RNA: mir-9256 microRNA precursor family
RNA sequence: AUACACACUGAGUGGCUAGAUUAUUGUGAUUUCUGAACGCAUAAUAAUCUGGCCAUUCAGUGUGAGU
Numbered sequence: 001a002u003a004c005a006c007a008c009u010g011a012g013u014g015g016c017u018a019g020a021u022u023a024u025u026g027u028g029a030u031u032u033c034u035g036a037a038c039g040c041a042u043a044a045u046a047a048u049c050u051g052g053c054c055a056u057u058c059a060g061u062g063u064g065a066g067u
Base pairs, nucleotide, nucleotide: 004064005063006062007061008060009059010058011057012056013055014054015053016052017051019049020048021047022046023045024044025043026042027041028040